[Rfam]
RNA: mir-130 microRNA precursor family
Organism: Anguilla anguilla
Nucleotides: 080
Base pairs, nucleotide, nucleotide: 001080002079003078006075008073009072010071011070014067015066016065017064018063019062020061023058024057025056026055027054028053029052030051031050
Number, partner (000 for none) and nucleotide at each position: 001080c002079u003078g004000u005000u006075g007000u008073c009072u010071g011070a012000g013000c014067c015066u016065c017064u018063u019062u020061c021000c022000c023058u024057g025056u026055u027054g028053c029052a030051c031050u032000a033000c034000u035000g036000u037000u038000g039000g040000a041000g042000c043000a044000g045000c046000u047000a048000g049000c050031a051030g052029u053028g054027c055026a056025a057024u058023a059000a060000u061020g062019a063018a064017a065016g066015g067014g068000c069000a070011u071010c072009g073008g074000u075006c076000a077000c078003c079002a080001g